[Rfam]
RNA sequence: AACAUUAGCGCCUCGACGACAAUAGCUAGAAUGGCCGCGGCGACGGAGGAUUGUCCCCUGAUGAGGCUGUCAUUCUAGCGUUGUCAUCGAGGCGCUAAAAU
Numbered sequence: 001a002a003c004a005u006u007a008g009c010g011c012c013u014c015g016a017c018g019a020c021a022a023u024a025g026c027u028a029g030a031a032u033g034g035c036c037g038c039g040g041c042g043a044c045g046g047a048g049g050a051u052u053g054u055c056c057c058c059u060g061a062u063g064a065g066g067c068u069g070u071c072a073u074u075c076u077a078g079c080g081u082u083g084u085c086a087u088c089g090a091g092g093c094g095c096u097a098a099a100a101u
Stems, first nucleotide, its partner, number of pairs: 002101001005098012018085006025079011037067002041063002044060003048056003
The family of this 101-nucleotide RNA from Oryza meridionalis is "MIR5534 microRNA precursor family". The family's consensus secondary structure was predicted with RNAalifold. Its family is annotated with RISC complex and miRNA-mediated post-transcriptional gene silencing in the Gene Ontology.